[Rfam]
RNA: terC RNA
Organism: Erythrobacter sp. THAF29
RNA sequence: ACCGCGUACCGGGCCCCUCUGGCGAGCAAUCCAGCUCGUGAUGUCGGACGUAGCG
Numbered sequence: 001a002c003c004g005c006g007u008a009c010c011g012g013g014c015c016c017c018u019c020u021g022g023c024g025a026g027c028a029a030u031c032c033a034g035c036u037c038g039u040g041a042u043g044u045c046g047g048a049c050g051u052a053g054c055g
Stems, first nucleotide, its partner, number of pairs: 006049002009047004022039006